[Rfam]
RNA sequence: GCGCCGGACCUCCGCGACGGUAAACCGUGAACCCCGCCAGGCCCGGAAGGGAGCAACGGCAGCGGUCUCGCCGGGUGCCGGAGCAAGCUGGCGCGGA
Numbered sequence: 001g002c003g004c005c006g007g008a009c010c011u012c013c014g015c016g017a018c019g020g021u022a023a024a025c026c027g028u029g030a031a032c033c034c035c036g037c038c039a040g041g042c043c044c045g046g047a048a049g050g051g052a053g054c055a056a057c058g059g060c061a062g063c064g065g066u067c068u069c070g071c072c073g074g075g076u077g078c079c080g081g082a083g084c085a086a087g088c089u090g091g092c093g094c095g096g097a
Stems, first nucleotide, its partner, number of pairs: 004091004010083005015075001018073004024066005034059003042051003
RNA: Bacterial small signal recognition particle RNA